[Rfam]
Plastid-ycf2 5UTR RNA: a 73-nucleotide RNA sequence from Apium graveolens. The organism belongs to Apium, within Eukaryota. By type it is a cis-regulatory element.
RNA sequence: AUGCAUCCAAUAGGAAUUGAACCUACGAAUUCACCAAUUAUGAGUUGGGCACUUCAAUCAUUCAGUCAUGGAU
Numbered sequence: 001a002u003g004c005a006u007c008c009a010a011u012a013g014g015a016a017u018u019g020a021a022c023c024u025a026c027g028a029a030u031u032c033a034c035c036a037a038u039u040a041u042g043a044g045u046u047g048g049g050c051a052c053u054u055c056a057a058u059c060a061u062u063c064a065g066u067c068a069u070g071g072a073u
Base pairs, nucleotide, nucleotide: 005073006072007071008070011025012024013023014022040069041068042067044066045065046064047063048062049061